[Rfam]
The family of this 146-nucleotide sequence from Triticum aestivum is "small nucleolar RNA snoR137". A search with the family's covariance model found it, with a score of 68 bits. A reference for the family is Chen and Wu (2009), "Mining small RNA sequencing data: a new approach to identify small nucleolar RNAs in Arabidopsis", Nucleic Acids Res. The family's consensus secondary structure was predicted with RNAalifold. Lineage of the source: Eukaryota > Mesangiospermae > commelinids > Poaceae > Triticum.
RNA sequence: GUUGCUUCACAACUGGAAGAGUGACCUAUUCUUAACAGUUUGGUCAUCCUGUAGAGAGAAGCAUAGAUUAACGGACACACCAGCCAGCAUUAAACAGCACGGUGCUUUAUCAAACUGCGUCGUGUUACCUGUCUUCUGGCACAUUU
Numbered sequence: 001g002u003u004g005c006u007u008c009a010c011a012a013c014u015g016g017a018a019g020a021g022u023g024a025c026c027u028a029u030u031c032u033u034a035a036c037a038g039u040u041u042g043g044u045c046a047u048c049c050u051g052u053a054g055a056g057a058g059a060a061g062c063a064u065a066g067a068u069u070a071a072c073g074g075a076c077a078c079a080c081c082a083g084c085c086a087g088c089a090u091u092a093a094a095c096a097g098c099a100c101g102g103u104g105c106u107u108u109a110u111c112a113a114a115c116u117g118c119g120u121c122g123u124g125u126u127a128c129c130u131g132u133c134u135u136c137u138g139g140c141a142c143a144u145u146u
Base pairs, nucleotide, nucleotide: 003063004062005061006060007059008058017052019050021048022046023045024044025043026042083140084139085138086137087136089134096126097125098124100122101121102120103119104118